Rfam assigns this 103-nucleotide RNA sequence from Butyrivibrio sp. ob235 to the family "TPP riboswitch aptamer (THI element)". The match comes from Rfam's covariance-model search (67 bits).

[Rfam]
RNA sequence: AUAUUUUGCUAGGGGAGCUUUGCUGAGAUGGUGUUGAGCCCAACAUCGACCCUUAUUACUUGAACCGGGUAAUACCGGCGUAAGGAAGCAUAUAUAUCGCGAU
Number, nucleotide and partner (000 for none) at each position: 001a000002u000003a000004u000005u000006u000007u090008g089009c088010u087011a053012g052013g051014g050015g000016a000017g023018c022019u000020u000021u000022g018023c017024u000025g000026a000027g000028a000029u000030g047031g046032u045033g044034u043035u042036g041037a000038g000039c000040c000041c036042a035043a034044c033045a032046u031047c030048g000049a000050c014051c013052c012053u011054u000055a000056u000057u000058a000059c084060u083061u082062g081063a000064a000065c078066c077067g076068g075069g000070u000071a000072a000073u000074a000075c068076c067077g066078g065079c000080g000081u062082a061083a060084g059085g000086a000087a010088g009089c008090a007091u000092a000093u000094a000095u000096a000097u000098c000099g000100c000101g000102a000103u000